Actino-pnp RNA: a 57-nucleotide sequence from Propionibacterium cyclohexanicum.
The base pairs follow the family's consensus structure, which is taken from published work.
The family's RNA type in Rfam is cis-regulatory element.
It scores 57 bits against the family's covariance model.
The source organism's lineage runs through Bacteria, Bacillati, Actinomycetes, Propionibacteriales and Propionibacterium.

[Rfam]
RNA sequence: CUCGGUCCUCGGUGGUGGUUUGCGGGAUCCGCCCGCUGACCUCGAUCGAAGACCGGU
Dot-bracket structure: .((((((.(((((...((((.(((((.....))))).))))...))))).)))))).